[Rfam]
RNA sequence: GAAUCAAUGAUGAAAUCAACUUUCUGAAGAUGGUGAAUAACUCAUAUAAAUGGCAAUCGAAGGUCC
Numbered sequence: 001g002a003a004u005c006a007a008u009g010a011u012g013a014a015a016u017c018a019a020c021u022u023u024c025u026g027a028a029g030a031u032g033g034u035g036a037a038u039a040a041c042u043c044a045u046a047u048a049a050a051u052g053g054c055a056a057u058c059g060a061a062g063g064u065c066c
Base pairs, nucleotide, nucleotide: 001066003064004063005062
The record is a 66-nucleotide RNA sequence from Cricetulus griseus, which matches "Small nucleolar RNA SNORD109A" in Rfam.
Humans have two copies of the SNORD109 gene, SNORD109A and SNORD109B.
It scores 48 bits against the family's covariance model.
Rfam links the family to the GO terms RNA processing and nucleolus.
Pairs were carried over by alignment from the consensus structure, which was predicted with WAR.
The organism belongs to Cricetulus, within Eukaryota.